[Rfam]
The family of this 125-nucleotide RNA sequence from Glycine max is "MIR1509 microRNA precursor family".

RNA sequence: UGAUUCACUGCAUCUUCUUAAUCAAGGAAAUCACGGUCGCGUGUGUGCCGGAAAGAAAGUGGCCUGUGAUCUCCGGUUUCUCUUUCUCGACCGUGUUUCCUUGGUUAACGAUAUGUGCUGGAUCA
Numbered sequence: 001u002g003a004u005u006c007a008c009u010g011c012a013u014c015u016u017c018u019u020a021a022u023c024a025a026g027g028a029a030a031u032c033a034c035g036g037u038c039g040c041g042u043g044u045g046u047g048c049c050g051g052a053a054a055g056a057a058a059g060u061g062g063c064c065u066g067u068g069a070u071c072u073c074c075g076g077u078u079u080c081u082c083u084u085u086c087u088c089g090a091c092c093g094u095g096u097u098u099c100c101u102u103g104g105u106u107a108a109c110g111a112u113a114u115g116u117g118c119u120g121g122a123u124c125a
Stems, first nucleotide, its partner, number of pairs: 001125007011115003016110001018108013032095006039088001041086001
About this RNA
The match comes from Rfam's covariance-model search (116 bits). NCBI's taxonomy places the organism under Eukaryota, Embryophyta, Magnoliopsida, Fabaceae, Glycine subgen. Soja.